[Rfam]
RNA sequence: UGGUAUCUGACGGGAACGUCCGUAUAGUACGAGAGGAACUACGGAUGGUCGCCACUGGUGUACCGGUUGUCCGAGAGGGCACGUGCCGGGCAGCCACGCGACACGGGGUAAGAGCUGAACGCAUCUAAGCUCGAAACCCACCUGGAAAAGAGAUACCGCCGAGAUCACUCGUAGAAGACGAGAUCGAUAGACUCGGGGUGUACGCGCCGAGGUGACGAGGCGUUUAGCCCGCGAGCACUAACUGAUCGAAG
Numbered sequence: 001u002g003g004u005a006u007c008u009g010a011c012g013g014g015a016a017c018g019u020c021c022g023u024a025u026a027g028u029a030c031g032a033g034a035g036g037a038a039c040u041a042c043g044g045a046u047g048g049u050c051g052c053c054a055c056u057g058g059u060g061u062a063c064c065g066g067u068u069g070u071c072c073g074a075g076a077g078g079g080c081a082c083g084u085g086c087c088g089g090g091c092a093g094c095c096a097c098g099c100g101a102c103a104c105g106g107g108g109u110a111a112g113a114g115c116u117g118a119a120c121g122c123a124u125c126u127a128a129g130c131u132c133g134a135a136a137c138c139c140a141c142c143u144g145g146a147a148a149a150g151a152g153a154u155a156c157c158g159c160c161g162a163g164a165u166c167a168c169u170c171g172u173a174g175a176a177g178a179c180g181a182g183a184u185c186g187a188u189a190g191a192c193u194c195g196g197g198g199u200g201u202a203c204g205c206g207c208c209g210a211g212g213u214g215a216c217g218a219g220g221c222g223u224u225u226a227g228c229c230c231g232c233g234a235g236c237a238c239u240a241a242c243u244g245a246u247c248g249a250a251g
Stems, first nucleotide, its partner, number of pairs: 001158008011144004017047008048102005056096003063089005068081005105139003112132005163247004168182004188240003192235004196230003204223005211216001
A member of the RNA family "Archaeal large subunit ribosomal RNA" from Halorientalis sp. IM1011, 251 nucleotides of a longer RNA. The match comes from Rfam's covariance-model search (2837 bits). The source organism's lineage runs through Archaea, Methanobacteriati, Methanobacteriota, Haloarculaceae and Halorientalis. Pairs were carried over by alignment from the consensus structure, which is taken from published work. Clan: LSU clan.